[Rfam]
RNA sequence: UAGGCGGAUACCGAAAAGCCAAAAGAGAGUAGGUA
Numbered sequence: 001u002a003g004g005c006g007g008a009u010a011c012c013g014a015a016a017a018g019c020c021a022a023a024a025g026a027g028a029g030u031a032g033g034u035a
Stems, first nucleotide, its partner, number of pairs: 003020003010034003